[Rfam]
RNA sequence: CUGCAAAGCAUUGUACCCAGGGUCUGGCUACUAGACAUUGCACCUGGAGCUUUGUUUGUUCUGUAAUAAAAACUU
Numbered sequence: 001c002u003g004c005a006a007a008g009c010a011u012u013g014u015a016c017c018c019a020g021g022g023u024c025u026g027g028c029u030a031c032u033a034g035a036c037a038u039u040g041c042a043c044c045u046g047g048a049g050c051u052u053u054g055u056u057u058g059u060u061c062u063g064u065a066a067u068a069a070a071a072a073c074u075u
Stems, first nucleotide, its partner, number of pairs: 005053005017047004022036005